tRNA: an 80-nucleotide sequence from Antrodiella citrinella. Rfam classes the family as a transfer RNA. NCBI's taxonomy places the organism under Eukaryota, Opisthokonta, Polyporales, Steccherinaceae, Antrodiella. About the family: Transfer RNA (tRNA) molecules are approximately 80 nucleotides in length. Their secondary structure includes four short double-helical elements and three loops (D, anti-codon, and T loops). Further hydrogen bonds mediate the characteristic L-shaped molecular structure. tRNAs have two regions of fundamental functional importance: the anti-codon, which is responsible for specific mRNA codon recognition, and the 3' end, to which the tRNAs corresponding amino acid is attached (by aminoacyl-tRNA synthetases). tRNAs cope with the degeneracy of the genetic code in two manners: having more than one tRNA (with a specific anti-codon) for a particular amino acid; and 'wobble' base-pairing, i.e. permitting non-standard base-pairing at the 3rd anti-codon position.

RNA sequence: GGGCAUUUGGCACAGUGGUAGCGCGCACGCUUCGCAUAUGCAUUUGCGUGAGGCCCAGAGUUCAAUCCUCUGAAUGUCCA
Numbered sequence: 001g002g003g004c005a006u007u008u009g010g011c012a013c014a015g016u017g018g019u020a021g022c023g024c025g026c027a028c029g030c031u032u033c034g035c036a037u038a039u040g041c042a043u044u045u046g047c048g049u050g051a052g053g054c055c056c057a058g059a060g061u062u063c064a065a066u067c068c069u070c071u072g073a074a075u076g077u078c079c080a
Stems, first nucleotide, its partner, number of pairs: 001079007010024002013021001026050005056072005